The record is a 54-nucleotide RNA sequence from Megalops atlanticus, which matches "UnaL2 LINE 3' element" in Rfam.
RNA sequence: UGUAAAGAACUAUGUAAGUCGCUUUGGAUAAGAGCAUCUGCCAAAUGAAUAAAU
Numbered sequence: 001u002g003u004a005a006a007g008a009a010c011u012a013u014g015u016a017a018g019u020c021g022c023u024u025u026g027g028a029u030a031a032g033a034g035c036a037u038c039u040g041c042c043a044a045a046u047g048a049a050u051a052a053a054u
Stems, first nucleotide, its partner, number of pairs: 013043001014041003021035005
Rfam's curators write: The eel long interspersed element (LINE) UnaL2 and its partner short interspersed element (SINE) share a conserved 3' tail containing a stem-loop that is critical for their retrotransposition. Presumably, the first step of retrotransposition is the recognition of their 3' tails by UnaL2-encoded reverse transcriptase. The solution structure of a 17-nucleotide RNA derived from the 3' tail of UnaL2 was determined by NMR. A reference for the family is Baba et al. (2004), "Solution structure of an RNA stem-loop derived from the 3' conserved region of eel LINE UnaL2", RNA.